[Rfam]
RNA sequence: GCAGGUGAAAACAACGUUAAGCGAUGAACGUUGUUCUCCGUAAUUGUAGUUUUUCUCACAUAAGUCUUUAUACAGAAUAAUUGCCCAUUCUUGUGCCGAUAUUAUUUUAUAAUAUCGGCUUUU
Numbered sequence: 001g002c003a004g005g006u007g008a009a010a011a012c013a014a015c016g017u018u019a020a021g022c023g024a025u026g027a028a029c030g031u032u033g034u035u036c037u038c039c040g041u042a043a044u045u046g047u048a049g050u051u052u053u054u055c056u057c058a059c060a061u062a063a064g065u066c067u068u069u070a071u072a073c074a075g076a077a078u079a080a081u082u083g084c085c086c087a088u089u090c091u092u093g094u095g096c097c098g099a100u101a102u103u104a105u106u107u108u109a110u111a112a113u114a115u116c117g118g119c120u121u122u123u
Base pairs, nucleotide, nucleotide: 001047002046003045004044007038008037010035011034012033013032014031015030016029017028018027064085066083069077071075095119096118097117098116099115100114101113102112103111104110